[Rfam]
RNA sequence: AAUACAUUUACGCUGAAUCCCGCAUUGCGGGUACGGAGGAACCAGUUUUGGGGUUAAUCGGCAUUAAUAUUUAAGCUUGUAUUAAUGCAGUAGGGAACCUUUCAUCCCGAACCCGUCAGCUAACUUCGGAAGCAAAUAGAAAGGGGAAAC
Numbered sequence: 001a002a003u004a005c006a007u008u009u010a011c012g013c014u015g016a017a018u019c020c021c022g023c024a025u026u027g028c029g030g031g032u033a034c035g036g037a038g039g040a041a042c043c044a045g046u047u048u049u050g051g052g053g054u055u056a057a058u059c060g061g062c063a064u065u066a067a068u069a070u071u072u073a074a075g076c077u078u079g080u081a082u083u084a085a086u087g088c089a090g091u092a093g094g095g096a097a098c099c100u101u102u103c104a105u106c107c108c109g110a111a112c113c114c115g116u117c118a119g120c121u122a123a124c125u126u127c128g129g130a131a132g133c134a135a136a137u138a139g140a141a142a143g144g145g146g147a148a149a150c
Stems, first nucleotide, its partner, number of pairs: 012133003019031002034128005043050002051114003059090001061088010093108004

Annotation
Shown here is a 150-nucleotide sequence from Oxobacter pfennigii, a member of the family "c-di-AMP riboswitch aptamer (ydaO/yuaA leader)". The source organism's lineage runs through Bacteria, Clostridia, Eubacteriales, Clostridiaceae and Oxobacter. It scores 89 bits against the family's covariance model.